Shown here is an 86-nucleotide sequence from Arachnia propionica, a member of the family "Glycine riboswitch aptamer". A search with the family's covariance model found it, with a score of 56 bits. Lineage of the source: Bacteria > Bacillati > Propionibacteriales > Propionibacteriaceae > Arachnia.
[Rfam]
RNA sequence: GGCCCUGUAGCGGGAGAACCGACCCAGUCGGUGCCGAAGGAGCAACCGCCCCGGAAACUCUCAGGCUCCAGGACCGCGACGACUUC
Numbered sequence: 001g002g003c004c005c006u007g008u009a010g011c012g013g014g015a016g017a018a019c020c021g022a023c024c025c026a027g028u029c030g031g032u033g034c035c036g037a038a039g040g041a042g043c044a045a046c047c048g049c050c051c052c053g054g055a056a057a058c059u060c061u062c063a064g065g066c067u068c069c070a071g072g073a074c075c076g077c078g079a080c081g082a083c084u085u086c
Base pairs, nucleotide, nucleotide: 006081007080008079010077011076012075013074019031020030021029022028033066034065035064036062037061040060041059042058046054047053